This 366-nucleotide RNA from Croceicoccus ponticola belongs to the Rfam family "Alphaproteobacteria transfer-messenger RNA". The family's consensus secondary structure is taken from published work. Its family is annotated with RNA catabolic process in the Gene Ontology. By type it is a non-coding RNA gene.

Nucleotides: 366
Base pairs, nucleotide, nucleotide: 040053041052042051043050058217059216060215061214062213069210070209071208072207073206074205075204084196085195086194088193089192090191094110095109096108097107098106111178112177113176114175115174116173117172218233219232220231221230223244224243225242333347334346335345336344338364340362342360343359
Number, partner (000 for none) and nucleotide at each position: 001000u002000c003000a004000c005000u006000u007000c008000a009000c010000a011000u012000u013000a014000a015000g016000c017000c018000a019000a020000g021000g022000g023000u024000c025000g026000c027000u028000a029000u030000a031000u032000a033000g034000g035000g036000c037000g038000u039000g040053c041052c042051g043050g044000u045000u046000u047000c048000g049000a050043c051042c052041g053040g054000a055000u056000a057000u058217g059216g060215c061214g062213a063000u064000a065000a066000a067000u068000u069210g070209c071208g072207g073206u074205g075204u076000g077000c078000a079000a080000u081000a082000g083000g084196c085195a086194c087000a088193g089192c090191g091000g092000a093000c094110c095109c096108g097107g098106g099000g100000g101000c102000a103000g104000u105000a106098c107097c108096c109095g110094g111178c112177g113176g114175c115174u116173c117172c118000a119000c120000c121000a122000g123000u124000u125000u126000u127000c128000c129000c130000c131000g132000c133000c134000a135000a136000g137000c138000c139000c140000u141000u142000g143000u144000u145000a146000u147000c148000g149000g150000a151000g152000g153000g154000g155000c156000c157000g158000u159000g160000g161000g162000g163000u164000u165000g166000g167000a168000u169000c170000a171000u172117g173116g174115g175114g176113c177112c178111g179000a180000a181000c182000c183000a184000g185000g186000a187000u188000c189000g190000a191090c192089g193088u194086g195085u196084g197000u198000u199000g200000a201000a202000a203000g204075g205074c206073a207072c208071u209070g210069u211000u212000u213062u214061u215060g216059c217058c218233c219232g220231g221230g222000c223244u224243g225242a226000g227000u228000a229000a230221c231220c232219c233218g234000u235000u236000u237000a238000a239000g240000g241000c242225u243224c244223a245000a246000a247000a248000a249000c250000c251000c252000a253000c254000a255000a256000g257000u258000g259000c260000c261000a262000a263000c264000g265000a266000u267000a268000a269000c270000g271000a272000a273000g274000c275000a276000c277000u278000c279000g280000c281000u282000c283000u284000c285000g286000c287000a288000g289000c290000g291000u292000a293000a294000u295000c296000u297000g298000a299000c300000g301000g302000c303000c304000u305000a306000a307000c308000g309000g310000c311000c312000u313000g314000a315000u316000c317000u318000u319000a320000c321000a322000a323000a324000g325000c326000c327000a328000a329000a330000g331000c332000g333347c334346g335345g336344u337000u338364g339000g340362a341000c342360c343359c344336a345335c346334c347333g348000g349000g350000c351000a352000a353000c354000a355000g356000a357000a358000g359343g360342g361000a362340u363000a364338c365000c366000g